[Rfam]
RNA sequence: AUAAAGAGAAAGCGGGUAUAAAACUGCUUUCCUACGCGGUCAAAGUCUUGGGAGGAUGCGAUCUCGGCGCGAUUUUCCGCUGCCGCCGACUAUACGGAGAAGAGAUCGGACGCGUAUUGAAUUGCAAGGCGCAAGCCUUGCUUUUUUUU
Numbered sequence: 001a002u003a004a005a006g007a008g009a010a011a012g013c014g015g016g017u018a019u020a021a022a023a024c025u026g027c028u029u030u031c032c033u034a035c036g037c038g039g040u041c042a043a044a045g046u047c048u049u050g051g052g053a054g055g056a057u058g059c060g061a062u063c064u065c066g067g068c069g070c071g072a073u074u075u076u077c078c079g080c081u082g083c084c085g086c087c088g089a090c091u092a093u094a095c096g097g098a099g100a101a102g103a104g105a106u107c108g109g110a111c112g113c114g115u116a117u118u119g120a121a122u123u124g125c126a127a128g129g130c131g132c133a134a135g136c137c138u139u140g141c142u143u144u145u146u147u148u149u
Base pairs, nucleotide, nucleotide: 003148004147005146010029011028012027013026014025015024035114036113037112038111045057046056047055048054060107061106062105063104064103066084067083068082069080070079071078086097087096088095124141125140126139127138128137129136130135
RNA: Alphaproteobacterial sRNA ar9